[Rfam]
RNA sequence: GCCCUGAUGGCGCAACGGGACAGCGCACCGGUCUACGAAGCCGGGGGUUGCAGGUUCGAAUCCUGCUCAGGGCA
Numbered sequence: 001g002c003c004c005u006g007a008u009g010g011c012g013c014a015a016c017g018g019g020a021c022a023g024c025g026c027a028c029c030g031g032u033c034u035a036c037g038a039a040g041c042c043g044g045g046g047g048u049u050g051c052a053g054g055u056u057c058g059a060a061u062c063c064u065g066c067u068c069a070g071g072g073c074a
Base pairs, nucleotide, nucleotide: 001073002072003071004070005069006068007067010026011025012024013023028044029043030042031041032040050066051065052064053063054062
The family of this 74-nucleotide RNA sequence from Catellatospora sp. IY07-71 is "tRNA". Transfer RNA (tRNA) molecules are approximately 80 nucleotides in length. Their secondary structure includes four short double-helical elements and three loops (D, anti-codon, and T loops). Further hydrogen bonds mediate the characteristic L-shaped molecular structure. tRNAs have two regions of fundamental functional importance: the anti-codon, which is responsible for specific mRNA codon recognition, and the 3' end, to which the tRNAs corresponding amino acid is attached (by aminoacyl-tRNA synthetases). tRNAs cope with the degeneracy of the genetic code in two manners: having more than one tRNA (with a specific anti-codon) for a particular amino acid; and 'wobble' base-pairing, i.e. permitting non-standard base-pairing at the 3rd anti-codon position. A search with the family's covariance model found it, with a score of 67 bits. NCBI's taxonomy places the organism under Bacteria, Bacillati, Actinomycetes, Micromonosporales, Catellatospora.